[Rfam]
RNA sequence: ACACCCUUUUAAAGGCAGUCCCGUGAGACUGACAAAGGGGUGCAGUUCAUUGUGUGCUCACAAUAGGACUGCCCAAAACCCCUUCGUCAUAAGACGGAGGGGUUUUUAACG
Number, nucleotide and partner (000 for none) at each position: 001a000002c000003a000004c039005c038006c037007u036008u035009u034010u000011a000012a000013a000014g000015g000016c031017a030018g029019u028020c027021c000022c000023g000024u000025g000026a000027g020028a019029c018030u017031g016032a000033c000034a009035a008036a007037g006038g005039g004040g000041u000042g072043c071044a070045g069046u068047u067048c066049a000050u063051u062052g061053u060054g059055u000056g000057c000058u000059c054060a053061c052062a051063a050064u000065a000066g048067g047068a046069c045070u044071g043072c042073c000074c000075a106076a105077a104078a103079c102080c101081c100082c099083u098084u097085c096086g095087u094088c093089a000090u000091a000092a000093g088094a087095c086096g085097g084098a083099g082100g081101g080102g079103u078104u077105u076106u075107u000108a000109a000110c000111g000

Shown here is a 111-nucleotide RNA from Pullulanibacillus pueri, a member of the family "PyrR binding site". It is annotated as a cis-regulatory element. The family's consensus secondary structure is taken from published work.